[Rfam]
RNA: Guanidine-II riboswitch aptamer (mini-ykkC)
RNA sequence: GCGUGAGGACGGCCUCCCCCAUCAUGGGCAUCGCGUUCGGGACGGCCCGG
Dot-bracket structure: (.(.((((....)))).).)................(((((....)))))